[Rfam]
RNA sequence: UUACGUAAAUUCUAUAUAGCUCGUAUAAUUUUGAGGAUAUGGCUCAAUGAGUUUCUACCGGACGACCAUAAAUUGUCCGACUACGGGUGAACGUGUACCAGGG
Numbered sequence: 001u002u003a004c005g006u007a008a009a010u011u012c013u014a015u016a017u018a019g020c021u022c023g024u025a026u027a028a029u030u031u032u033g034a035g036g037a038u039a040u041g042g043c044u045c046a047a048u049g050a051g052u053u054u055c056u057a058c059c060g061g062a063c064g065a066c067c068a069u070a071a072a073u074u075g076u077c078c079g080a081c082u083a084c085g086g087g088u089g090a091a092c093g094u095g096u097a098c099c100a101g102g103g
Stems, first nucleotide, its partner, number of pairs: 019088007029049001031047005059079007

Shown here is a 103-nucleotide RNA sequence from Anaerospora hongkongensis, a member of the family "Purine riboswitch aptamer". A search with the family's covariance model found it, with a score of 76 bits. Pairs were carried over by alignment from the consensus structure, which is taken from published work. Its Rfam clan is "Purine riboswitches". A reference for the family is Reining et al. (2013), "Three-state mechanism couples ligand and temperature sensing in riboswitches", Nature.